[Rfam]
RNA sequence: GCGUCGGCUUUAGCUCAGUAGUUACUUCGAUUUCGCUCAAAUCUCUCUGGUCGCGUGUUCGCGUCCAGUUUACUACGGGCGCUGUCCGGCGUUUUA
Numbered sequence: 001g002c003g004u005c006g007g008c009u010u011u012a013g014c015u016c017a018g019u020a021g022u023u024a025c026u027u028c029g030a031u032u033u034c035g036c037u038c039a040a041a042u043c044u045c046u047c048u049g050g051u052c053g054c055g056u057g058u059u060c061g062c063g064u065c066c067a068g069u070u071u072a073c074u075a076c077g078g079g080c081g082c083u084g085u086c087c088g089g090c091g092u093u094u095u096a
Base pairs, nucleotide, nucleotide: 002091003090004089005088006087007086013080014079015078016077018076019075020074021073026063028061029060030059
This 96-nucleotide sequence from Chiloscyllium punctatum belongs to the Rfam family "Vault RNA".
On this family, see Stadler et al., Mol Biol Evol 2009: "Evolution of Vault RNAs".
It is annotated as a non-coding RNA gene.
It scores 62 bits against the family's covariance model.
NCBI's taxonomy places the organism under Eukaryota, Opisthokonta, Metazoa, Vertebrata, Chiloscyllium.